A member of the RNA family "mir-190 microRNA precursor family" from Anolis carolinensis, 76 nucleotides long. The organism belongs to Anolis, within Eukaryota. Its Rfam clan is "mir-50 clan".
RNA sequence: GCUUCUGCUGAUAUGUUUGAUAUUAGGUUGUUCUACUGGGAAACCAACUAAAUAUCAAACAUAUUCUUACAGCGCC
Numbered sequence: 001g002c003u004u005c006u007g008c009u010g011a012u013a014u015g016u017u018u019g020a021u022a023u024u025a026g027g028u029u030g031u032u033c034u035a036c037u038g039g040g041a042a043a044c045c046a047a048c049u050a051a052a053u054a055u056c057a058a059a060c061a062u063a064u065u066c067u068u069a070c071a072g073c074g075c076c
Base pairs, nucleotide, nucleotide: 005072006071007070010065011064012063013062014061015060016059017058018057019056020055021054022053023052024051026049027048028047029046030045
Rfam links the family to the GO terms miRNA-mediated post-transcriptional gene silencing and RISC complex. For this family Rfam cites "MicroRNA discovery and profiling in human embryonic stem cells by deep sequencing of small RNA libraries" (Bar et al., Stem Cells, 2008).